[Rfam]
RNA sequence: AGGGAAUUUCAGUGUUAGGUCAUAGCAGAAGGGUUUGUGGUUCAGUCAUGUCAGAUUCCAAUGGAUCUGCGAAUUCUGUU
Number, nucleotide and partner (000 for none) at each position: 001a000002g000003g000004g000005a000006a000007u000008u000009u000010c000011a000012g000013u048014g000015u000016u000017a000018g047019g046020u045021c000022a000023u000024a080025g079026c078027a077028g076029a075030a074031g043032g042033g041034u000035u000036u000037g000038u000039g000040g000041u033042u032043c031044a000045g020046u019047c018048a013049u000050g000051u000052c069053a068054g067055a066056u065057u064058c063059c000060a000061a000062u000063g058064g057065a056066u055067c054068u053069g052070c000071g000072a000073a000074u030075u029076c028077u027078g026079u025080u024
The record is an 80-nucleotide sequence from Crocodylus porosus, which matches "Mammalian CPEB3 ribozyme" in Rfam. The source organism's lineage runs through Eukaryota, Metazoa, Vertebrata, Tetrapoda and Crocodylus. Pairs were carried over by alignment from the consensus structure, which is taken from published work. Rfam's curators write: The mammalian CPEB3 ribozyme is a self cleaving RNA located in the second intron of the CPEB3 gene which belongs to a family of genes regulating messenger RNA polyadenylation. This ribozyme is highly conserved and found only in mammals. The CPEB3 ribozyme is structurally and biochemically related to the human hepatitis delta virus (HDV) ribozyme and the HDV ribozyme is proposed to have arisen from the human transcriptome. There is currently only one other known self cleaving ribozyme in mammals, the CoTC motif.